[Rfam]
RNA sequence: CUCUUAUCGAGAGCUGGCUGAGGGAAUUGGCCCUGUGAAGCCCGGCAACCGACCUACUCAUCAGAAUUCUGGUGAAAACCUUAAAGGUUUUAAGGCACGGUGCUACAUCCAACAGUAUCGGAUUCUAUAUCCGAACUGAAAGAUAAGAG
Numbered sequence: 001c002u003c004u005u006a007u008c009g010a011g012a013g014c015u016g017g018c019u020g021a022g023g024g025a026a027u028u029g030g031c032c033c034u035g036u037g038a039a040g041c042c043c044g045g046c047a048a049c050c051g052a053c054c055u056a057c058u059c060a061u062c063a064g065a066a067u068u069c070u071g072g073u074g075a076a077a078a079c080c081u082u083a084a085a086g087g088u089u090u091u092a093a094g095g096c097a098c099g100g101u102g103c104u105a106c107a108u109c110c111a112a113c114a115g116u117a118u119c120g121g122a123u124u125c126u127a128u129a130u131c132c133g134a135a136c137u138g139a140a141a142g143a144u145a146a147g148a149g
Stems, first nucleotide, its partner, number of pairs: 001149008013043001016042003022033003027112004044104004049100002051096001053094001108141001113138004118133001
SAM riboswitch aptamer (S box leader): a 149-nucleotide RNA sequence from Alkalicoccobacillus porphyridii. A search with the family's covariance model found it, with a score of 67 bits. Rfam's curators write: The SAM riboswitch is found upstream of a number of genes which code for proteins involved in methionine or cysteine biosynthesis in Gram-positive bacteria. Rfam links the family to the GO term regulation of gene expression.